[Rfam]
RNA sequence: GGGUUACUCCUUUGCGCUUUUAGCGCUCAAUUGAUAAAGAUUCGCACCUCUAUCAAAUCGGGUAACCCCGCCUUUGGCAAGGCCCUACUGUCAGAUCAUCUGAACUACUACACUUAAAGGCAUAAGCAGGUGCUUUCCGUCGUUAUACCGUUACCACCCGGUCCACCUUCCACCACAUGAAUUCUUCUGUGGGGACUGAUCUG
Numbered sequence: 001g002g003g004u005u006a007c008u009c010c011u012u013u014g015c016g017c018u019u020u021u022a023g024c025g026c027u028c029a030a031u032u033g034a035u036a037a038a039g040a041u042u043c044g045c046a047c048c049u050c051u052a053u054c055a056a057a058u059c060g061g062g063u064a065a066c067c068c069c070g071c072c073u074u075u076g077g078c079a080a081g082g083c084c085c086u087a088c089u090g091u092c093a094g095a096u097c098a099u100c101u102g103a104a105c106u107a108c109u110a111c112a113c114u115u116a117a118a119g120g121c122a123u124a125a126g127c128a129g130g131u132g133c134u135u136u137c138c139g140u141c142g143u144u145a146u147a148c149c150g151u152u153a154c155c156a157c158c159c160g161g162u163c164c165a166c167c168u169u170c171c172a173c174c175a176c177a178u179g180a181a182u183u184c185u186u187c188u189g190u191g192g193g194g195a196c197u198g199a200u201c202u203g
Stems, first nucleotide, its partner, number of pairs: 001068007009061002014026004030058003033054004038049002071203001075156003081149002086147001090105002092102004160197003173192005179186001

Proteobacterial sRNA psRNA2: a 203-nucleotide RNA sequence from Nitrosospira sp. Nsp14. Pairs were carried over by alignment from the consensus structure. A reference for the family is Gvakharia et al. (2010), "Computational prediction and transcriptional analysis of sRNAs in Nitrosomonas europaea", FEMS Microbiol Lett. The organism belongs to Nitrosospira, within Bacteria.